Makes More Granules Regulator RNA (mmgR): a 73-nucleotide sequence from Sphingobium fontiphilum. It scores 52 bits against the family's covariance model. The family is grouped with related families in Rfam's "suhB sRNA clan". Rfam classes the family as a small RNA. NCBI's taxonomy places the organism under Bacteria, Pseudomonadati, Pseudomonadota, Alphaproteobacteria, Sphingobium. The base pairs follow the family's consensus structure. SuhB later renamed mmgR (makes more granules regulator) was a putative non-coding RNA found multiple times in the Agrobacterium tumefaciens genome and related alpha-proteobacteria. Other non-coding RNAs uncovered in the same analysis include: speF, ybhL, metA, and serC.Several studies inSinorhizobium meliloti showed that suhB element is indeed a non-coding RNA:firstly it was detected on Northern blot and called Sm8RNA, secondly in an RNAseq study referred to as SmelC689.The mutant phenotype's (strain lacking the small RNA) cytoplasm contains higher content of polyhydroxybutyrate (PBH)storage granules than wild type strain. The sRNA is required to limit the PBH intracellular accumulation when the nitrogen-fixing Sinorhizobium meliloti is under condition of surplus carbon in relation to nitrogen. It has been renamed to mmgR. Further study confirmed that mmgR fine-tunes the regulation of PBH storage.Northern blot confirmed the expression of the sRNA in other rhizobia species.

RNA sequence: AGAGCGUGCCUUUCAGGCAUCCUCUCCUAAAACUUUCACGGCCGGUCUCUGACCGGCCUUUUUUUUAUCGUCG
Number, nucleotide and partner (000 for none) at each position: 001a000002g000003a000004g000005c000006g000007u000008g018009c017010c016011u015012u000013u000014c000015a011016g010017g009018c008019a000020u000021c000022c000023u000024c000025u000026c000027c000028u000029a000030a000031a000032a000033c000034u000035u000036u000037c000038a000039c000040g058041g057042c056043c055044g054045g053046u052047c051048u000049c000050u000051g047052a046053c045054c044055g043056g042057c041058c040059u000060u000061u000062u000063u000064u000065u000066u000067a000068u000069c000070g000071u000072c000073g000